Background
The family of this 127-nucleotide RNA from Caenorhabditis brenneri is "Small nucleolar RNA U6-47". Its family is annotated with nucleolus and RNA processing in the Gene Ontology. Rfam classes the family as a C/D-box small nucleolar RNA. The base pairs follow the family's consensus structure, which was predicted with WAR. NCBI's taxonomy places the organism under Eukaryota, Bilateria, Rhabditida, Rhabditoidea, Caenorhabditis. It scores 64 bits against the family's covariance model.

[Rfam]
RNA sequence: AAGCGAUGAAGAAAGCCAUCACACGAAACACUGUCGAUUAUAAAUCGGAACACAUAGGUCCUAGUUGUCGUUAAACUUGAACUGUCCCGAUUGCGUGGUCGAGUGCCUAAUCUUCUCUCUGAGCUUG
Numbered sequence: 001a002a003g004c005g006a007u008g009a010a011g012a013a014a015g016c017c018a019u020c021a022c023a024c025g026a027a028a029c030a031c032u033g034u035c036g037a038u039u040a041u042a043a044a045u046c047g048g049a050a051c052a053c054a055u056a057g058g059u060c061c062u063a064g065u066u067g068u069c070g071u072u073a074a075a076c077u078u079g080a081a082c083u084g085u086c087c088c089g090a091u092u093g094c095g096u097g098g099u100c101g102a103g104u105g106c107c108u109a110a111u112c113u114u115c116u117c118u119c120u121g122a123g124c125u126u127g
Stems, first nucleotide, its partner, number of pairs: 001126004